[Rfam]
RNA sequence: AUCCUUGUGGAAGGCGCAACAGCGCUAUCAGACGCUUAGCGGAGGUGCGCUGUUUGCUAGUUGAAACUACUCCAAUUCCCGUCAAGUUUGCAAUUUUCAUUAUGGCUUCGACGAUCGCAACUUCUUCAACAGCUCCGGAA
Numbered sequence: 001a002u003c004c005u006u007g008u009g010g011a012a013g014g015c016g017c018a019a020c021a022g023c024g025c026u027a028u029c030a031g032a033c034g035c036u037u038a039g040c041g042g043a044g045g046u047g048c049g050c051u052g053u054u055u056g057c058u059a060g061u062u063g064a065a066a067c068u069a070c071u072c073c074a075a076u077u078c079c080c081g082u083c084a085a086g087u088u089u090g091c092a093a094u095u096u097u098c099a100u101u102a103u104g105g106c107u108u109c110g111a112c113g114a115u116c117g118c119a120a121c122u123u124c125u126u127c128a129a130c131a132g133c134u135c136c137g138g139a140a
Stems, first nucleotide, its partner, number of pairs: 021051005027046003033041003081112003084108005090103001092101003122140003
RNA: U4 spliceosomal RNA
Organism: Symbiodinium sp. CCMP2592